[Rfam]
RNA sequence: CUAUGAAGGUAGCAUGGUAAGGUGCACAGAAAUUGAACUUUAUGGGUCUACAUGUCUGCUCCCUCUGAGGCCUCUGUUGGAGCCUUUGAUUUGGGGGCCUGGUUCUGAUCUACAUUC
Number, nucleotide and partner (000 for none) at each position: 001c000002u000003a000004u000005g000006a000007a000008g000009g000010u000011a000012g025013c024014a023015u022016g000017g000018u000019a000020a000021g000022g015023u014024g013025c012026a000027c000028a000029g000030a000031a000032a000033u000034u000035g000036a000037a000038c000039u000040u000041u000042a000043u000044g100045g099046g098047u097048c096049u000050a000051c000052a000053u000054g090055u089056c088057u000058g084059c000060u082061c000062c000063c000064u000065c000066u000067g000068a000069g000070g000071c000072c000073u000074c000075u000076g000077u000078u000079g000080g000081a000082g060083c000084c058085u000086u000087u000088g056089a055090u054091u000092u000093g000094g000095g000096g048097g047098c046099c045100u044101g000102g000103u000104u000105c000106u000107g000108a000109u000110c000111u000112a000113c000114a000115u000116u000117c000